Shown here is a 100-nucleotide sequence, a member of the family "L4-Archaeoglobi ribosomal protein leades".

RNA sequence: CUGAUGGGCGCGUCCGGGUCAAUUGCGGAAUGCAACACCCGAUCUCCCUUCCCGUCCCCACUGGGAUGCAAGUACGGGAAGGAGAGCGUGUCGCCGUCAG
Dot-bracket structure: (((((..((((((.((((....(((((...)))))..)))).(((((.((((.......................)))).)))))))))))....)))))
Numbered sequence: 001c002u003g004a005u006g007g008g009c010g011c012g013u014c015c016g017g018g019u020c021a022a023u024u025g026c027g028g029a030a031u032g033c034a035a036c037a038c039c040c041g042a043u044c045u046c047c048c049u050u051c052c053c054g055u056c057c058c059c060a061c062u063g064g065g066a067u068g069c070a071a072g073u074a075c076g077g078g079a080a081g082g083a084g085a086g087c088g089u090g091u092c093g094c095c096g097u098c099a100g
Stems, first nucleotide, its partner, number of pairs: 001100005008091006015041004023035005043085005049079004
The sequence is in the family's curated seed alignment.
Pairs were carried over by alignment from the consensus structure, which is taken from published work.